This 187-nucleotide RNA from Litchfieldia stipae belongs to the Rfam family "Bacillus sRNA ncr1575".
It scores 90 bits against the family's covariance model.
Pairs were carried over by alignment from the consensus structure, which is taken from published work.
Rfam classes the family as a small RNA.
The organism belongs to Litchfieldia, within Bacteria.

RNA sequence: ACAAUAAAUUGAGAAGGGAUGAUGGGUGAUCGAUGUAUAACUAAUCCUAUUGUUUAAAAAAACGUAUAUAACGUAAAAAAACAAACAGGAUUAGUCUGCCCAUUUAUCUACAAUGAACGGUUUCACCUACAGUAAGUAGGUGUAUUUUGCGACGAAUCCUACCAUGCAUGAUCGGUAGGAUUUUUUC
Numbered sequence: 001a002c003a004a005u006a007a008a009u010u011g012a013g014a015a016g017g018g019a020u021g022a023u024g025g026g027u028g029a030u031c032g033a034u035g036u037a038u039a040a041c042u043a044a045u046c047c048u049a050u051u052g053u054u055u056a057a058a059a060a061a062a063c064g065u066a067u068a069u070a071a072c073g074u075a076a077a078a079a080a081a082c083a084a085a086c087a088g089g090a091u092u093a094g095u096c097u098g099c100c101c102a103u104u105u106a107u108c109u110a111c112a113a114u115g116a117a118c119g120g121u122u123u124c125a126c127c128u129a130c131a132g133u134a135a136g137u138a139g140g141u142g143u144a145u146u147u148u149g150c151g152a153c154g155a156a157u158c159c160u161a162c163c164a165u166g167c168a169u170g171a172u173c174g175g176u177a178g179g180a181u182u183u184u185u186u187c
Base pairs, nucleotide, nucleotide: 016109017108018107019105023102024101025100026099031094042093043092044091045090046089047088048087050085051083052082053081054080062074063073064072065071118149119148120147124142125141126140127139128138129137130136155182156181157180158179159178160177161176162175163174